Annotation: This 136-nucleotide RNA sequence from Gymnodraco acuticeps belongs to the Rfam family "Small nucleolar RNA SNORD94". The base pairs follow the family's consensus structure, which was predicted with RNAalifold. The family has 21 seed sequences and 802 matches in Rfam 15.1.
[Rfam]
RNA sequence: UCUGUGAUGAUGAGCCGCGCAGGGGUACGGACCUCAGCCAAUGAUGGGUGGCUGACUGCUGCUGCGCUCUGAUUGGAGGACGAGUGGUCAGCUGACAGAGCGGCAGCAGCAGGAAACAGACGCCGCGCUGAACAGA
Numbered sequence: 001u002c003u004g005u006g007a008u009g010a011u012g013a014g015c016c017g018c019g020c021a022g023g024g025g026u027a028c029g030g031a032c033c034u035c036a037g038c039c040a041a042u043g044a045u046g047g048g049u050g051g052c053u054g055a056c057u058g059c060u061g062c063u064g065c066g067c068u069c070u071g072a073u074u075g076g077a078g079g080a081c082g083a084g085u086g087g088u089c090a091g092c093u094g095a096c097a098g099a100g101c102g103g104c105a106g107c108a109g110c111a112g113g114a115a116a117c118a119g120a121c122g123c124c125g126c127g128c129u130g131a132a133c134a135g136a
Base pairs, nucleotide, nucleotide: 001136002135003134004133005132